RNA sequence: CGGGGACCGCCGCCUAAUCGCACGCAUGAGCGAGCCGGGGAUCCACAUUUCUUCCGGGGUGAAUCCGCGUCAGCGGUAGGGAUUUCCUUCGUCCCGAACCCGUCAGCUAACCCGGCCGGCGGCCGACGGAAGGAAAU
Numbered sequence: 001c002g003g004g005g006a007c008c009g010c011c012g013c014c015u016a017a018u019c020g021c022a023c024g025c026a027u028g029a030g031c032g033a034g035c036c037g038g039g040g041a042u043c044c045a046c047a048u049u050u051c052u053u054c055c056g057g058g059g060u061g062a063a064u065c066c067g068c069g070u071c072a073g074c075g076g077u078a079g080g081g082a083u084u085u086c087c088u089u090c091g092u093c094c095c096g097a098a099c100c101c102g103u104c105a106g107c108u109a110a111c112c113c114g115g116c117c118g119g120c121g122g123c124c125g126a127c128g129g130a131a132g133g134a135a136a137u
Base pairs, nucleotide, nucleotide: 011121012120013119014118018033019032020031034116035115036114037113038112039111044056057101058100059099065076066075067074068073079095080094081093082092
Dot-bracket structure: ..........((((...(((..........)))((((((....(...........)(((.....((((....))))..((((.........))))...))).........)))))).))))................